[Rfam]
RNA: UnaL2 LINE 3' element
RNA sequence: UACACUCAUAACUGUAAGUUGCUUUGGAUAUAGCAUCUGCUAAAUGGCAUACU
Numbered sequence: 001u002a003c004a005c006u007c008a009u010a011a012c013u014g015u016a017a018g019u020u021g022c023u024u025u026g027g028a029u030a031u032a033g034c035a036u037c038u039g040c041u042a043a044a045u046g047g048c049a050u051a052c053u
Base pairs, nucleotide, nucleotide: 013042014040015039016038020035021034022033023032025030